[Rfam]
RNA sequence: ACACGCGAAAGGAGGUGGUCCAAAGUUGAGUAUUAAUUGGACACGUGAGGUGGCUGUCCACUAGCCCCCGUCCGUCCCACUUUUGCAGUACGGGCCGCACGGCGGCUUGUGUAAGUCCAGACAACUACCCGACCCCCGGGGUGCCGGCCAGUCCAGUCGGCCCGCUCGAGCGGACAUUCCACUCGCGCGGUCAGCCCCGGGGGUUGUCUGUA
Numbered sequence: 001a002c003a004c005g006c007g008a009a010a011g012g013a014g015g016u017g018g019u020c021c022a023a024a025g026u027u028g029a030g031u032a033u034u035a036a037u038u039g040g041a042c043a044c045g046u047g048a049g050g051u052g053g054c055u056g057u058c059c060a061c062u063a064g065c066c067c068c069c070g071u072c073c074g075u076c077c078c079a080c081u082u083u084u085g086c087a088g089u090a091c092g093g094g095c096c097g098c099a100c101g102g103c104g105g106c107u108u109g110u111g112u113a114a115g116u117c118c119a120g121a122c123a124a125c126u127a128c129c130c131g132a133c134c135c136c137c138g139g140g141g142u143g144c145c146g147g148c149c150a151g152u153c154c155a156g157u158c159g160g161c162c163c164g165c166u167c168g169a170g171c172g173g174a175c176a177u178u179c180c181a182c183u184c185g186c187g188c189g190g191u192c193a194g195c196c197c198c199g200g201g202g203g204u205u206g207u208c209u210g211u212a
Stems, first nucleotide, its partner, number of pairs: 014058006059111003063107003068102003072097001074095001130206013143161006
Notes
Actinobacteria sRNA Ms_IGR-5: a 212-nucleotide RNA from Virgisporangium aurantiacum. For this family Rfam cites "Identification of small RNAs in Mycobacterium smegmatis using heterologous Hfq" (Li et al., RNA, 2013). Rfam classes the family as a small RNA. A search with the family's covariance model found it, with a score of 93 bits.